[Rfam]
RNA: Archaeal large subunit ribosomal RNA, nucleotides 905 to 1357
RNA sequence: CCAACCGAAACAUGUCGAAGCAUGACCUCCGCUGAGGUAGUCCGUGGGGUAGAGCGACCGAUUGCCGUGUCCGCCCUCGAGAGAGGUCGGCUCGGCUGUCAAACUCCGAACCUACGGACGCCGUCGACGCGGGGAGUCCGGUGCGCGGGGUAAGCCUGUGUACCAUAAGGGGAACAACCCAGCGUUUGGUUAAGGUCCCCAAGUGUGGAUUAAGUGUAAUCCUCUGAAGGUGGUCUCAAGCCCUAGACAGCCGGGAGGUGAGCUUAGAAGCAGCUACCCUCUAAGAAAAGCGUAACAGCUUACCGGCCGAGGUUUGAGGCGCCCAAAAUGAUCGGGACUCAAAUCCACCACCGAGACCAAACCACGCCCGUCACAGGGCGAUUGCGUAGGUUGGCGCUCCGAUUGGAUGGAAGCAGGGGUGAGAACUCCUGUGGACCGAUCGGUGACGAAAAU
Numbered sequence: 001c002c003a004a005c006c007g008a009a010a011c012a013u014g015u016c017g018a019a020g021c022a023u024g025a026c027c028u029c030c031g032c033u034g035a036g037g038u039a040g041u042c043c044g045u046g047g048g049g050u051a052g053a054g055c056g057a058c059c060g061a062u063u064g065c066c067g068u069g070u071c072c073g074c075c076c077u078c079g080a081g082a083g084a085g086g087u088c089g090g091c092u093c094g095g096c097u098g099u100c101a102a103a104c105u106c107c108g109a110a111c112c113u114a115c116g117g118a119c120g121c122c123g124u125c126g127a128c129g130c131g132g133g134g135a136g137u138c139c140g141g142u143g144c145g146c147g148g149g150g151u152a153a154g155c156c157u158g159u160g161u162a163c164c165a166u167a168a169g170g171g172g173a174a175c176a177a178c179c180c181a182g183c184g185u186u187u188g189g190u191u192a193a194g195g196u197c198c199c200c201a202a203g204u205g206u207g208g209a210u211u212a213a214g215u216g217u218a219a220u221c222c223u224c225u226g227a228a229g230g231u232g233g234u235c236u237c238a239a240g241c242c243c244u245a246g247a248c249a250g251c252c253g254g255g256a257g258g259u260g261a262g263c264u265u266a267g268a269a270g271c272a273g274c275u276a277c278c279c280u281c282u283a284a285g286a287a288a289a290g291c292g293u294a295a296c297a298g299c300u301u302a303c304c305g306g307c308c309g310a311g312g313u314u315u316g317a318g319g320c321g322c323c324c325a326a327a328a329u330g331a332u333c334g335g336g337a338c339u340c341a342a343a344u345c346c347a348c349c350a351c352c353g354a355g356a357c358c359a360a361a362c363c364a365c366g367c368c369c370g371u372c373a374c375a376g377g378g379c380g381a382u383u384g385c386g387u388a389g390g391u392u393g394g395c396g397c398u399c400c401g402a403u404u405g406g407a408u409g410g411a412a413g414c415a416g417g418g419g420u421g422a423g424a425a426c427u428c429c430u431g432u433g434g435a436c437c438g439a440u441c442g443g444u445g446a447c448g449a450a451a452a453u
Stems, first nucleotide, its partner, number of pairs: 001394006011024005026136001027134006036122003040119008052107001053105002060100003064096004069091001073088001075086004140164009169180003184362007194352003203349001205348006229323003233320010250307005256280003261275003281285001286301001290299002363384002365380005395448001397445001399443008413432008